[Rfam]
RNA: Group I catalytic intron
RNA sequence: CCUCCUACGUUCGUAAAGAGCGUAGAGUGAUGGAUACAUUCCAUCCAAAAUCCUUUGAAUUGCUGGAAGUCCCUAAAGCCAAUUCAACCACAACGUAAUGAUGAAACAAGCAUAAGCGUGAUGGUUACGAAAGUAGAAAAAAUGAAUGGGAUGGUGCAUGGUUAAAUCCUAAACACUGGUACAAUGGGUAAUCAGCAGCGAAGCCUCGAAUAGAGGAAUGUUCAACGACUAGGCGAAAGCCGUACACUACAAGCGAUGGGUAGUGGAAGUGGAGGACACCGAUUCGGUGAUGAUAUAGUCUGCGCUGUAUGGUGACAUGCAG
Numbered sequence: 001c002c003u004c005c006u007a008c009g010u011u012c013g014u015a016a017a018g019a020g021c022g023u024a025g026a027g028u029g030a031u032g033g034a035u036a037c038a039u040u041c042c043a044u045c046c047a048a049a050a051u052c053c054u055u056u057g058a059a060u061u062g063c064u065g066g067a068a069g070u071c072c073c074u075a076a077a078g079c080c081a082a083u084u085c086a087a088c089c090a091c092a093a094c095g096u097a098a099u100g101a102u103g104a105a106a107c108a109a110g111c112a113u114a115a116g117c118g119u120g121a122u123g124g125u126u127a128c129g130a131a132a133g134u135a136g137a138a139a140a141a142a143u144g145a146a147u148g149g150g151a152u153g154g155u156g157c158a159u160g161g162u163u164a165a166a167u168c169c170u171a172a173a174c175a176c177u178g179g180u181a182c183a184a185u186g187g188g189u190a191a192u193c194a195g196c197a198g199c200g201a202a203g204c205c206u207c208g209a210a211u212a213g214a215g216g217a218a219u220g221u222u223c224a225a226c227g228a229c230u231a232g233g234c235g236a237a238a239g240c241c242g243u244a245c246a247c248u249a250c251a252a253g254c255g256a257u258g259g260g261u262a263g264u265g266g267a268a269g270u271g272g273a274g275g276a277c278a279c280c281g282a283u284u285c286g287g288u289g290a291u292g293a294u295a296u297a298g299u300c301u302g303c304g305c306u307g308u309a310u311g312g313u314g315a316c317a318u319g320c321a322g
Stems, first nucleotide, its partner, number of pairs: 005025008029040003051276004056271002061197006071188003198221002204215001206213001225301001227300005279287003307320005